A member of the RNA family "Mammalian CPEB3 ribozyme" from Parnassius apollo, 81 nucleotides long. A search with the family's covariance model found it, with a score of 54 bits. Taxonomically the source falls in Parnassius (Eukaryota, Neoptera, Endopterygota, Parnassius).
[Rfam]
RNA sequence: UUAUAUAUAUUGGGGGUCAUUGUAGAAGCGUGCUCGUCGCGACCCCUGCCAGCCCUUGCAGUUCAGGGCUGCAAUUCUACA
Numbered sequence: 001u002u003a004u005a006u007a008u009a010u011u012g013g014g015g016g017u018c019a020u021u022g023u024a025g026a027a028g029c030g031u032g033c034u035c036g037u038c039g040c041g042a043c044c045c046c047u048g049c050c051a052g053c054c055c056u057u058g059c060a061g062u063u064c065a066g067g068g069c070u071g072c073a074a075u076u077c078u079a080c081a
Base pairs, nucleotide, nucleotide: 013046014045015044016043017042018041021081022080023079024078025077026076027075028040029039030038050071051070052069053068054067055066056065